[Rfam]
RNA sequence: AUGCCUUAAACUCAUGAGUUAGGAAAAUAAUGAUUCAAGCUGAUAUACAAAUCCUCAUUGCUAAUGUAAGACAAAUUUUUCAGUGGGUCAACUUUUCCCCUAAGGUGACUUGCCUACUUUGUGAGAUGCCUGGGAGUUGCCAUCUGCCUG
Numbered sequence: 001a002u003g004c005c006u007u008a009a010a011c012u013c014a015u016g017a018g019u020u021a022g023g024a025a026a027a028u029a030a031u032g033a034u035u036c037a038a039g040c041u042g043a044u045a046u047a048c049a050a051a052u053c054c055u056c057a058u059u060g061c062u063a064a065u066g067u068a069a070g071a072c073a074a075a076u077u078u079u080u081c082a083g084u085g086g087g088u089c090a091a092c093u094u095u096u097c098c099c100c101u102a103a104g105g106u107g108a109c110u111u112g113c114c115u116a117c118u119u120u121g122u123g124a125g126a127u128g129c130c131u132g133g134g135a136g137u138u139g140c141c142a143u144c145u146g147c148c149u150g
Base pairs, nucleotide, nucleotide: 004023005022006021008019032053033052034051035050039046054070055069057067058066084150085149086148087147088146091145094142097139100134101133103131104130105129106128107127109125110124111123112122113121
RNA: U12 minor spliceosomal RNA
Organism: Ailuropoda melanoleuca